[Rfam]
RNA: mir-263 microRNA precursor family
Organism: Trichogramma brassicae
RNA sequence: UGGAUUCUGUCAAUGGCACUGGAAGAAUUCACGGGGGUUAUACGAGACCCGUGGAUCUCGAGUGUCAUACACAGCGUCCG
Numbered sequence: 001u002g003g004a005u006u007c008u009g010u011c012a013a014u015g016g017c018a019c020u021g022g023a024a025g026a027a028u029u030c031a032c033g034g035g036g037g038u039u040a041u042a043c044g045a046g047a048c049c050c051g052u053g054g055a056u057c058u059c060g061a062g063u064g065u066c067a068u069a070c071a072c073a074g075c076g077u078c079c080g
Stems, first nucleotide, its partner, number of pairs: 003078003007074004013068006020061001022059002025057002029054006